[Rfam]
RNA: Makes More Granules Regulator RNA (mmgR)
Organism: Sphingobium sp. CAP-1
RNA sequence: AGACUGUGCCUUUCAGGCAUCCUCUCCUAAAAACUUUCAGGCUGGUCUUGCGAUCAGCCUUUUUUUUGUCACGC
Numbered sequence: 001a002g003a004c005u006g007u008g009c010c011u012u013u014c015a016g017g018c019a020u021c022c023u024c025u026c027c028u029a030a031a032a033a034c035u036u037u038c039a040g041g042c043u044g045g046u047c048u049u050g051c052g053a054u055c056a057g058c059c060u061u062u063u064u065u066u067u068g069u070c071a072c073g074c
Stems, first nucleotide, its partner, number of pairs: 008018004039060009